Shown here is a 129-nucleotide RNA sequence from Oryza sativa, a member of the family "mir-166 microRNA precursor family".
Lineage of the source: Eukaryota > Tracheophyta > Petrosaviidae > Oryzeae > Oryza sativa.
The family has 31 seed sequences and 2,599 matches in Rfam 15.1.
About the family: This family represents the plant microRNA (miRNA) precursor mir-166.
[Rfam]
RNA sequence: UUUGGGUGGAAUGUUGUCUGGUUCAAGGCCCCUUAGGAUGUGUGAUUUUUGAUGGUUUAUGCAUUCAUCUUGAUGCGAACAUCUAUCUCGGAUCUUUGGGUUCUCGGACCAGGCUUCAUUCCCCUCAGA
Numbered sequence: 001u002u003u004g005g006g007u008g009g010a011a012u013g014u015u016g017u018c019u020g021g022u023u024c025a026a027g028g029c030c031c032c033u034u035a036g037g038a039u040g041u042g043u044g045a046u047u048u049u050u051g052a053u054g055g056u057u058u059a060u061g062c063a064u065u066c067a068u069c070u071u072g073a074u075g076c077g078a079a080c081a082u083c084u085a086u087c088u089c090g091g092a093u094c095u096u097u098g099g100g101u102u103c104u105c106g107g108a109c110c111a112g113g114c115u116u117c118a119u120u121c122c123c124c125u126c127a128g129a
Stems, first nucleotide, its partner, number of pairs: 001129006008122006016114006024106001026104003